[Rfam]
Nucleotides: 093
Base pairs, nucleotide, nucleotide: 005089006088007087008086011083012082013081015079016078017077018076021073022072023071024070027067028066029065030064031063032062033061
Number, partner (000 for none) and nucleotide at each position: 001000u002000g003000g004000u005089g006088a007087a008086u009000u010000a011083c012082a013081g014000c015079g016078c017077a018076a019000a020000u021073c022072u023071c024070u025000u026000u027067u028066g029065g030064c031063a032062u033061g034000c035000g036000g037000a038000g039000a040000u041000u042000g043000c044000a045000a046000a047000u048000g049000c050000a051000u052000a053000a054000u055000a056000u057000c058000c059000g060000a061033c062032a063031u064030g065029c066028c067027a068000a069000a070024g071023g072022a073021g074000a075000c076018u077017u078016g079015c080000u081013c082012u083011g084000c085000c086008a087007u088006u089005c090000a091000c092000u093000a
The family of this 93-nucleotide RNA from Beta vulgaris is "mir-399 microRNA precursor family". Its family is annotated with RISC complex and miRNA-mediated post-transcriptional gene silencing in the Gene Ontology. Rfam's curators write: mir-399 was identified in both Arabidopsis thaliana and Oryza sativa computationally and was later experimentally verified. mir-399 is thought to target mRNAs coding for a phosphatase transporter. The literature on the family includes a 2004 paper in Mol Cell by Jones-Rhoades and Bartel, "Computational Identification of Plant MicroRNAs and Their Targets, Including a Stress-Induced miRNA". Rfam 15.1 lists 2,396 matches to the family in 221 species.